[Rfam]
RNA sequence: GCCGAGCCAGGUAGCGUUGGCUUGUAACCCAAGCGGGGGCACGUGAGGUUUGGGAUGGUUAAAGGAACCACAGAUGGGUUGGUUGCGAUCGUGUAGAAGCCUGGCCUGCCCGUUCCAAGUCAGGUAGCUGAGCCAUGCGGCUUGGGCGAAGGCCCGUUCCAAGUCAGGUACGCCCCAUGGCUCUUAGAGCAGAGGGCACCGCGUCAGGCUGGCUUCACAGAGCAGCGAUGACCACCUCGCUCUUGACGGUGGGAGGAUAACAAGUCGGCGCACAUCGCAUCCACCACGCCCACCUCGCUCCUUAGACCAAACCACCACCUUU
Numbered sequence: 001g002c003c004g005a006g007c008c009a010g011g012u013a014g015c016g017u018u019g020g021c022u023u024g025u026a027a028c029c030c031a032a033g034c035g036g037g038g039g040c041a042c043g044u045g046a047g048g049u050u051u052g053g054g055a056u057g058g059u060u061a062a063a064g065g066a067a068c069c070a071c072a073g074a075u076g077g078g079u080u081g082g083u084u085g086c087g088a089u090c091g092u093g094u095a096g097a098a099g100c101c102u103g104g105c106c107u108g109c110c111c112g113u114u115c116c117a118a119g120u121c122a123g124g125u126a127g128c129u130g131a132g133c134c135a136u137g138c139g140g141c142u143u144g145g146g147c148g149a150a151g152g153c154c155c156g157u158u159c160c161a162a163g164u165c166a167g168g169u170a171c172g173c174c175c176c177a178u179g180g181c182u183c184u185u186a187g188a189g190c191a192g193a194g195g196g197c198a199c200c201g202c203g204u205c206a207g208g209c210u211g212g213c214u215u216c217a218c219a220g221a222g223c224a225g226c227g228a229u230g231a232c233c234a235c236c237u238c239g240c241u242c243u244u245g246a247c248g249g250u251g252g253g254a255g256g257a258u259a260a261c262a263a264g265u266c267g268g269c270g271c272a273c274a275u276c277g278c279a280u281c282c283a284c285c286a287c288g289c290c291c292a293c294c295u296c297g298c299u300c301c302u303u304a305g306a307c308c309a310a311a312c313c314a315c316c317a318c319c320u321u322u
Base pairs, nucleotide, nucleotide: 001040002039003038004023005022006021007020008019009018010017028037029036030035045321046320047319048318049317051314052313053312056309057308059306060305063302064301065300066299068297073295077291078290080288081282082281084279085278086277087276088275089274091273092272093271096269101268102267103266104265105264107262108261110256111255113254114253115252116251117250119247120246121245122244123243124242126241127240128239130183131182132181133180134179135178136177137176139174140173141172143170144169184189191237192236194233195232202227203226204225209220210219211218
Source information:
The family of this 322-nucleotide sequence from Musa acuminata is "Plant signal recognition particle RNA". A reference for the family is Wild et al. (2002), "Towards the structure of the mammalian signal recognition particle", Curr Opin Struct Biol. Lineage of the source: Eukaryota > Euphyllophyta > Liliopsida > Musaceae > Musa acuminata. A search with the family's covariance model found it, with a score of 172 bits.